[Rfam]
RNA sequence: GCCCUCAAUCCGAAUUGUGGCGUUUAUCGCCGCGUUUCCUCCGGGAAUAGGACUGGGGGUUUUC
Numbered sequence: 001g002c003c004c005u006c007a008a009u010c011c012g013a014a015u016u017g018u019g020g021c022g023u024u025u026a027u028c029g030c031c032g033c034g035u036u037u038c039c040u041c042c043g044g045g046a047a048u049a050g051g052a053c054u055g056g057g058g059g060u061u062u063u064c
Base pairs, nucleotide, nucleotide: 001060002059003058004057005056006055007054009052010051011050016034017033018032019031020030021029022028036047037046038045039044
RNA: DUF3800-IX RNA